The record is a 145-nucleotide RNA from Hipposideros armiger, which matches "small Cajal body-specific RNA 17" in Rfam.
The organism belongs to Hipposideros, within Eukaryota.
scaRNAs are a specific class of small nuclear RNAs which localise to the Cajal bodies and guide the modification of RNA polymerase II transcribed spliceosomal RNAs U1, U2, U4, U5 and U12.
Rfam links the family to the GO terms nucleolus, RNA processing and Cajal body.
RNA sequence: CCCCCGGGUCCCUGAUGCUGUCCUCUAGAUGAGCCUGCGGUAUUUUCCUUAUGUGAUUGGGCCCCGUGGCUGGUGACGCAGCUUGCCUGGAGCCUGAGAGGAUUAUGACAACAUGUCAGGCGGAGUGAGGCCAGGGGACCCAGGU
Numbered sequence: 001c002c003c004c005c006g007g008g009u010c011c012c013u014g015a016u017g018c019u020g021u022c023c024u025c026u027a028g029a030u031g032a033g034c035c036u037g038c039g040g041u042a043u044u045u046u047c048c049u050u051a052u053g054u055g056a057u058u059g060g061g062c063c064c065c066g067u068g069g070c071u072g073g074u075g076a077c078g079c080a081g082c083u084u085g086c087c088u089g090g091a092g093c094c095u096g097a098g099a100g101g102a103u104u105a106u107g108a109c110a111a112c113a114u115g116u117c118a119g120g121c122g123g124a125g126u127g128a129g130g131c132c133a134g135g136g137g138a139c140c141c142a143g144g145u
Stems, first nucleotide, its partner, number of pairs: 002144002006141008020131001022130004057097006064090002069086002072083003
On this family, see Darzacq et al., EMBO J 2002: "Cajal body-specific small nuclear RNAs: a novel class of 2'-O-methylation and pseudouridylation guide RNAs". Rfam classes the family as a small Cajal body RNA. Pairs were carried over by alignment from the consensus structure, which is taken from published work. Rfam 15.1 lists 262 matches to the family in 128 species. It scores 117 bits against the family's covariance model.